[Rfam]
RNA: Small nucleolar RNA snR8
RNA sequence: UUUUCCUCACAUUCGUAAGCCUUCUAUUCACUGCACUGCCCACAAAAUGGGUAACUGGAGGGGAAAAGAACGGCGAGAGAAAAGUGAGAGGCCACCUCAUACGACGUCGACGCUAUACACCGAAGUUCGAUGUUGUAACUGGGCUCCUUCGACAUUC
Numbered sequence: 001u002u003u004u005c006c007u008c009a010c011a012u013u014c015g016u017a018a019g020c021c022u023u024c025u026a027u028u029c030a031c032u033g034c035a036c037u038g039c040c041c042a043c044a045a046a047a048u049g050g051g052u053a054a055c056u057g058g059a060g061g062g063g064a065a066a067a068g069a070a071c072g073g074c075g076a077g078a079g080a081a082a083a084g085u086g087a088g089a090g091g092c093c094a095c096c097u098c099a100u101a102c103g104a105c106g107u108c109g110a111c112g113c114u115a116u117a118c119a120c121c122g123a124a125g126u127u128c129g130a131u132g133u134u135g136u137a138a139c140u141g142g143g144c145u146c147c148u149u150c151g152a153c154a155u156u157c
Stems, first nucleotide, its partner, number of pairs: 019074002022070002031060002034057002037053005086149003091144003102135009113125001